[Rfam]
RNA sequence: AUCUUGGGACGCAUUUUGUGCAGUUAUGCACCAAAAAUAUAUCCAUCACUGGGCAAAGUGUGUCUCAGGAU
Dot-bracket structure: ....((((((((((..(((.((((.......................)))).)))..))))))))))....
RNA: mir-3 microRNA precursor family
Organism: Drosophila ananassae